Shown here is a 44-nucleotide sequence from Stylophora pistillata, a member of the family "Histone 3' UTR stem-loop". The mRNAs of metazoan histone genes lack a poly-A tail. 3' end processing occurs at a site between a highly conserved stem-loop (modelled by this family) and a purine rich region around 20 nts downstream (the histone downstream element, or HDE). Pairs were carried over by alignment from the consensus structure, which is taken from published work.

RNA sequence: AAAACGGCUUCUUUAGAAGCCACCAAACCUAAUAAAAGUUAAUG
Dot-bracket structure: .....((((((....)))))).......................